[Rfam]
RNA sequence: AGCUCGACGGGGUCGACGCCGCGGGUGACGAGGAGGUAGUCGCGGAUGCAGAAGGCGUGGCGGCCCUC
Numbered sequence: 001a002g003c004u005c006g007a008c009g010g011g012g013u014c015g016a017c018g019c020c021g022c023g024g025g026u027g028a029c030g031a032g033g034a035g036g037u038a039g040u041c042g043c044g045g046a047u048g049c050a051g052a053a054g055g056c057g058u059g060g061c062g063g064c065c066c067u068c
Stems, first nucleotide, its partner, number of pairs: 004063003008059002012029002016026002035056001037054001040052002042049002
Notes: This 68-nucleotide RNA from Nocardioides sp. S5 belongs to the Rfam family "ASdes TB sRNA". On this family, see Arnvig and Young, Mol Microbiol 2009: "Identification of small RNAs in Mycobacterium tuberculosis". By type it is a small RNA. Lineage of the source: Bacteria > Bacillati > Actinomycetota > Propionibacteriales > Nocardioides. A search with the family's covariance model found it, with a score of 49 bits. The base pairs follow the family's consensus structure, which is taken from published work.